[Rfam]
RNA sequence: UUCCGUACAGUUUUCUGAUCACCAAUUUCCGAAAGGAACAUAGGGGAUCAGAACUUAACCCUAAGACAUUG
Numbered sequence: 001u002u003c004c005g006u007a008c009a010g011u012u013u014u015c016u017g018a019u020c021a022c023c024a025a026u027u028u029c030c031g032a033a034a035g036g037a038a039c040a041u042a043g044g045g046g047a048u049c050a051g052a053a054c055u056u057a058a059c060c061c062u063a064a065g066a067c068a069u070u071g
Stems, first nucleotide, its partner, number of pairs: 009055003015051006
The family of this 71-nucleotide part of an RNA from Venustampulla echinocandica is "Ascomycota telomerase RNA". The family's RNA type in Rfam is non-coding RNA gene.